This 95-nucleotide sequence from Agromyces atrinae belongs to the Rfam family "TPP riboswitch aptamer (THI element)". The base pairs follow the family's consensus structure, which is taken from published work. Its family is annotated with thiamine pyrophosphate binding in the Gene Ontology.

[Rfam]
RNA sequence: ACGAGUGACACGGGGUGCCGCACUGCGCGGCUGAGAUCACACCCGUCGAACCUGAUCUAGUUCGGACUAGCGAAGGGAUGUCGCGUGCGCGCACG
Numbered sequence: 001a002c003g004a005g006u007g008a009c010a011c012g013g014g015g016u017g018c019c020g021c022a023c024u025g026c027g028c029g030g031c032u033g034a035g036a037u038c039a040c041a042c043c044c045g046u047c048g049a050a051c052c053u054g055a056u057c058u059a060g061u062u063c064g065g066a067c068u069a070g071c072g073a074a075g076g077g078a079u080g081u082c083g084c085g086u087g088c089g090c091g092c093a094c095g
Stems, first nucleotide, its partner, number of pairs: 006083005011045004016039001017031005051076003057070004